[Rfam]
RNA sequence: CCUAACUGUAACCUUGAUAGAUGGAAUGAGGGGGUAACGCCCUGAAACGUCUUCCCUGAUACUCCGAUUGGCGCUGCAAGACAGCACUUGCAGGGUCAAGAGCUCGGUGAAGUCGGCUGAAUACACUCGCUGUAUCGACAACAAUCAUAUUGUAUCGUUACGGCAAAAGCAAGCCAGAGGUGGCUGUGAGUGUUAGGCCGGGGGUCUACAAA
Number, nucleotide and partner (000 for none) at each position: 001c000002c000003u000004a000005a000006c000007u000008g000009u000010a000011a000012c000013c000014u000015u000016g000017a000018u000019a052020g051021a050022u049023g048024g000025a000026a000027u000028g000029a000030g000031g043032g042033g041034g040035u000036a000037a000038c000039g000040c034041c033042c032043u031044g000045a000046a000047a000048c023049g022050u021051c020052u019053u000054c204055c203056c202057u201058g000059a000060u000061a000062c000063u000064c107065c106066g105067a104068u099069u098070g097071g096072c095073g000074c093075u092076g091077c090078a089079a088080g087081a000082c000083a000084g000085c000086a000087c080088u079089u078090g077091c076092a075093g074094g000095g072096u071097c070098a069099a068100g000101a000102g000103c000104u067105c066106g065107g064108u000109g000110a000111a000112g000113u000114c200115g199116g198117c197118u196119g000120a000121a000122u000123a193124c192125a191126c190127u189128c188129g000130c000131u000132g000133u000134a000135u000136c000137g000138a000139c000140a159141a158142c157143a000144a000145u000146c000147a155148u154149a000150u000151u000152g000153u000154a148155u147156c000157g142158u141159u140160a000161c000162g000163g000164c000165a000166a000167a000168a000169g187170c186171a185172a000173g184174c183175c182176a181177g000178a000179g000180g000181u176182g175183g174184c173185u171186g170187u169188g128189a127190g126191u125192g124193u123194u000195a000196g118197g117198c116199c115200g114201g057202g056203g055204g054205u000206c000207u000208a000209c000210a000211a000212a000
Shown here is a 212-nucleotide RNA sequence, a member of the family "Group II catalytic intron D1-D4-5". From the family's description: Group II introns are found in rRNA, tRNA and mRNA of organelles in fungi, plants and protists, and also in mRNA in bacteria. A reference for the family is Bonen and Vogel (2001), "The ins and outs of group II introns", Trends Genet. Rfam links the family to the GO term Group II intron splicing. It is one of the family's seed sequences.